The record is a 139-nucleotide sequence from Calyptomena viridis, which matches "MIR480 microRNA precursor family" in Rfam. On this family, see Lu et al., Plant Cell 2005: "Novel and mechanical stress-responsive MicroRNAs in Populus trichocarpa that are absent from Arabidopsis". It scores 35 bits against the family's covariance model.

[Rfam]
RNA sequence: UAUUUGAUUUAAAAAAUAGUGUGCUAUCAUCUUUGGACUGUCAAACCUGAAUCUGCAGCAUCAAACAGUACCACAAGCUUCACUUAAAUUAUGAAUUGUAAAAUAAACCAUGAUUGAUUCCUUAAUUUCCAUUUUAAUG
Numbered sequence: 001u002a003u004u005u006g007a008u009u010u011a012a013a014a015a016a017u018a019g020u021g022u023g024c025u026a027u028c029a030u031c032u033u034u035g036g037a038c039u040g041u042c043a044a045a046c047c048u049g050a051a052u053c054u055g056c057a058g059c060a061u062c063a064a065a066c067a068g069u070a071c072c073a074c075a076a077g078c079u080u081c082a083c084u085u086a087a088a089u090u091a092u093g094a095a096u097u098g099u100a101a102a103a104u105a106a107a108c109c110a111u112g113a114u115u116g117a118u119u120c121c122u123u124a125a126u127u128u129c130c131a132u133u134u135u136a137a138u139g
Base pairs, nucleotide, nucleotide: 004137005136006135007134009131012128014126018122019121023118025116027113028112029111030110